A member of the RNA family "Xanthine riboswitch aptamer (NMT1 RNA)" from Gillisella ampelina, 50 nucleotides long. Rfam links the family to the GO term purine nucleobase binding. Pairs were carried over by alignment from the consensus structure, which is taken from published work. For this family Rfam cites "A bacterial riboswitch class senses xanthine and uric acid to regulate genes associated with purine oxidation" (Yu and Breaker, RNA, 2020).
RNA sequence: AGCACGAGUAGAAGCGGUCUGAGCCUGAGGCUCUGGGCAUUGCUCGACGG
Numbered sequence: 001a002g003c004a005c006g007a008g009u010a011g012a013a014g015c016g017g018u019c020u021g022a023g024c025c026u027g028a029g030g031c032u033c034u035g036g037g038c039a040u041u042g043c044u045c046g047a048c049g050g
Stems, first nucleotide, its partner, number of pairs: 005046006015035001018037002021033005